A member of the RNA family "mir-72 microRNA precursor family" from Diploscapter pachys, 85 nucleotides long. Rfam 15.1 lists 75 matches to the family in 67 species. Gene Ontology terms of the family: RISC complex and miRNA-mediated post-transcriptional gene silencing.
[Rfam]
RNA sequence: GCCAGGCAAGAUGUUGGCAUAGCUGAUUGCGAGGUUUCUGCUUCUGAAACACGUUCCGCUCAGCUGCGCCACAUGCGGCCACGCA
Numbered sequence: 001g002c003c004a005g006g007c008a009a010g011a012u013g014u015u016g017g018c019a020u021a022g023c024u025g026a027u028u029g030c031g032a033g034g035u036u037u038c039u040g041c042u043u044c045u046g047a048a049a050c051a052c053g054u055u056c057c058g059c060u061c062a063g064c065u066g067c068g069c070c071a072c073a074u075g076c077g078g079c080c081a082c083g084c085a
Stems, first nucleotide, its partner, number of pairs: 005080003011074004016070003022064005